[Rfam]
Shown here is a 169-nucleotide RNA sequence from Clostridiaceae bacterium AF18-31LB, a member of the family "Clostridiales-1 RNA". Rfam classes the family as a small RNA.
RNA sequence: UGAUACCAGGGGCAAAAGUUAAAAACCACGAUGUGCUUGCACAUGAGUGGUUCUUAAACUUUAUGCCCCGCCCAAAUAUGAGCAUAAAAGAGGAGCGCAAGCACCUCGAUAUGCGAAUAUUGGGCAGGAUUGUGGGAGUACGAAGUACGAAACAAUCCGUAUGGUAUCA
Numbered sequence: 001u002g003a004u005a006c007c008a009g010g011g012g013c014a015a016a017a018g019u020u021a022a023a024a025a026c027c028a029c030g031a032u033g034u035g036c037u038u039g040c041a042c043a044u045g046a047g048u049g050g051u052u053c054u055u056a057a058a059c060u061u062u063a064u065g066c067c068c069c070g071c072c073c074a075a076a077u078a079u080g081a082g083c084a085u086a087a088a089a090g091a092g093g094a095g096c097g098c099a100a101g102c103a104c105c106u107c108g109a110u111a112u113g114c115g116a117a118u119a120u121u122g123g124g125c126a127g128g129a130u131u132g133u134g135g136g137a138g139u140a141c142g143a144a145g146u147a148c149g150a151a152a153c154a155a156u157c158c159g160u161a162u163g164g165u166a167u168c169a
Stems, first nucleotide, its partner, number of pairs: 001169007010068004016061005021055002024052006031044005072124002075121005082114004090107004095102002127158007138148004